[Rfam]
RNA sequence: CCAAAGGCUCUUUUAAGAGCCACCCAACUCUACUCCAAAAGUGCUA
Numbered sequence: 001c002c003a004a005a006g007g008c009u010c011u012u013u014u015a016a017g018a019g020c021c022a023c024c025c026a027a028c029u030c031u032a033c034u035c036c037a038a039a040a041g042u043g044c045u046a
Stems, first nucleotide, its partner, number of pairs: 006021006
RNA: Histone 3' UTR stem-loop